[Rfam]
RNA sequence: GCAUCGAAACGGCAAACCACGUUAAAGCGUGGGACGCAAAGCCUCUGGCCUAAGUCCCGACGUACGGUGGCCAGAACAGCCACCGGGGAUACGGCAGCAGGGCUACCGAA
Numbered sequence: 001g002c003a004u005c006g007a008a009a010c011g012g013c014a015a016a017c018c019a020c021g022u023u024a025a026a027g028c029g030u031g032g033g034a035c036g037c038a039a040a041g042c043c044u045c046u047g048g049c050c051u052a053a054g055u056c057c058c059g060a061c062g063u064a065c066g067g068u069g070g071c072c073a074g075a076a077c078a079g080c081c082a083c084c085g086g087g088g089a090u091a092c093g094g095c096a097g098c099a100g101g102g103c104u105a106c107c108g109a110a
Stems, first nucleotide, its partner, number of pairs: 012037002017032006040104004045100003048095003055089004

Rfam assigns this 110-nucleotide RNA sequence from Thioflavicoccus mobilis to the family "c-di-GMP-I riboswitch aptamer". The source organism's lineage runs through Bacteria, Pseudomonadati, Pseudomonadota, Chromatiales and Thioflavicoccus mobilis. The family has 155 seed sequences and 5,092 matches in Rfam 15.1.